[Rfam]
RNA: gltS RNA
Organism: Vibrio viridaestus
RNA sequence: UGCCACCAUGGAUUGUUUUUCUCACAACUCAUUUUCCUGUGAGAAACGGAACGGACUCAAACUGACCAGGACAUGGCCAGUUUAGAUUUCAUUUUAAGGACCAG
Dot-bracket structure: ...................(((((((...........)))))))................((((.((.......)).)))).......................